[Rfam]
RNA sequence: UGUGCAGGACAUGUCUAAAUAGGCAUACAACUUGUCAUUGUGUUAUUGCCACUUGAACUUGUUCCCUGCUAGACCAAUUCGAGAAAAAUGGGCAGUUGAGUUAGGCCAGAUAUUGUGGUUUACUCAACAAUCAUUUUUCUCAUAGUU
Dot-bracket structure: ...(((((........................................................)))))...........(((((((((((...((((..........................))))..)))))))))))......
small nucleolar RNA snoR135: a 147-nucleotide RNA from Setaria italica. Pairs were carried over by alignment from the consensus structure, which was predicted with RNAalifold. NCBI's taxonomy places the organism under Eukaryota, Viridiplantae, Magnoliopsida, Poales, Setaria. Rfam classes the family as an H/ACA-box small nucleolar RNA. On this family, see Chen and Wu, Nucleic Acids Res 2009: "Mining small RNA sequencing data: a new approach to identify small nucleolar RNAs in Arabidopsis".